[Rfam]
RNA sequence: AUCAGGCCGCGCGCGCGGCCAGGCCGGCGCCCCACAGGGGGAUGAACCCGGUCCGGCGUCCGUCGAUAACCUGACGCCACG
Numbered sequence: 001a002u003c004a005g006g007c008c009g010c011g012c013g014c015g016c017g018g019c020c021a022g023g024c025c026g027g028c029g030c031c032c033c034a035c036a037g038g039g040g041g042a043u044g045a046a047c048c049c050g051g052u053c054c055g056g057c058g059u060c061c062g063u064c065g066a067u068a069a070c071c072u073g074a075c076g077c078c079a080c081g
Base pairs, nucleotide, nucleotide: 005020006019007018008017009016010015022053023052024051025050026049027048028044029043031041032040033039055078056077057076058075059074060073
RNA: nhaA-II RNA